[Rfam]
RNA: Small nucleolar RNA SNORD19
RNA sequence: GAGAAAUGAGGAUAAACACCUUGUCUUACUUAUUUCGUGAAGACUUCAGAUCCAACUCUGAUCUCACACUGAAU
Numbered sequence: 001g002a003g004a005a006a007u008g009a010g011g012a013u014a015a016a017c018a019c020c021u022u023g024u025c026u027u028a029c030u031u032a033u034u035u036c037g038u039g040a041a042g043a044c045u046u047c048a049g050a051u052c053c054a055a056c057u058c059u060g061a062u063c064u065c066a067c068a069c070u071g072a073a074u
Base pairs, nucleotide, nucleotide: 001065002064003063004062